The family of this 110-nucleotide RNA sequence from Desulforamulus ruminis is "SAM riboswitch aptamer (S box leader)". The match comes from Rfam's covariance-model search (88 bits).

RNA sequence: AUCUUAUCAAGAGUGGUGGAGGGACUGGCCCUAUGAAGCCCGGCAACCGGCCAAUCAUUCUGGCGGCGGUGCCAACUCCUGCAGGACUGCGCGGUCCUGAGAGAUGAGUC
Numbered sequence: 001a002u003c004u005u006a007u008c009a010a011g012a013g014u015g016g017u018g019g020a021g022g023g024a025c026u027g028g029c030c031c032u033a034u035g036a037a038g039c040c041c042g043g044c045a046a047c048c049g050g051c052c053a054a055u056c057a058u059u060c061u062g063g064c065g066g067c068g069g070u071g072c073c074a075a076c077u078c079c080u081g082c083a084g085g086a087c088u089g090c091g092c093g094g095u096c097c098u099g100a101g102a103g104a105u106g107a108g109u110c
Stems, first nucleotide, its partner, number of pairs: 003108006013041001015040003021031003025081001027079002042073004047069002050064003077102001082099006